RNA sequence: GUAUGUGGAUGGUGUUCAUCACCAGGGAGAGGUGUGUCUUCCUGUGUGUGGAUGGUGUUCAGCACUAAGGACAGGUAUUUGUGUGC
Numbered sequence: 001g002u003a004u005g006u007g008g009a010u011g012g013u014g015u016u017c018a019u020c021a022c023c024a025g026g027g028a029g030a031g032g033u034g035u036g037u038c039u040u041c042c043u044g045u046g047u048g049u050g051g052a053u054g055g056u057g058u059u060c061a062g063c064a065c066u067a068a069g070g071a072c073a074g075g076u077a078u079u080u081g082u083g084u085g086c
Base pairs, nucleotide, nucleotide: 001072002071010067011066012065013064014063015062016061018059020057021056022055023054024053026047028045030043031042032041034039